Record summary: The family of this 78-nucleotide RNA from Apolygus lucorum is "mir-1 microRNA precursor family". This family represents the microRNA (miRNA) mir-1 family. miRNAs are transcribed as ~70nt precursors (modelled here) and subsequently processed by the Dicer enzyme to give a ~22nt product. In this case the mature sequence comes from the 3' arm of the precursor. The extents of the hairpin precursors are not generally known and are estimated based on hairpin prediction. The products are thought to have regulatory roles through complementarity to mRNA. The involvement of Dicer in miRNA processing suggests a relationship with the phenomenon of RNA interference. miRNAs are numbered based on the sequence of the mature RNA. This family also contains the mir-206 from human, which appears to be related to mir-1. The family's consensus secondary structure was predicted with RNAalifold.
RNA sequence: CUGUAGGUUCCAUGCUUCUGUACUUCCCAUACUGAUACUUUGAGAGCUAUGGAAUGUAAAGAAGUAUGGAGCUUCAGG
Dot-bracket structure: ......(((((((((((((.(((.(.(((((................))))).).))).)))))))))))))......
Taxonomically the source falls in Apolygus (Eukaryota, Bilateria, Paraneoptera, Cimicoidea).